Shown here is a 55-nucleotide RNA from Citromicrobium sp. RCC1897, a member of the family "terC RNA". Pairs were carried over by alignment from the consensus structure, which is taken from published work. It is annotated as a cis-regulatory element. NCBI's taxonomy places the organism under Bacteria, Pseudomonadati, Pseudomonadota, Sphingomonadales, Citromicrobium. The match comes from Rfam's covariance-model search (60 bits).

RNA sequence: CCGCGGGACCGGGCCCCUCUGGCGCGUCAAUGACGCGUGAUGUCGGACCGCAUCG
Numbered sequence: 001c002c003g004c005g006g007g008a009c010c011g012g013g014c015c016c017c018u019c020u021g022g023c024g025c026g027u028c029a030a031u032g033a034c035g036c037g038u039g040a041u042g043u044c045g046g047a048c049c050g051c052a053u054c055g
Stems, first nucleotide, its partner, number of pairs: 006049002009046004022038007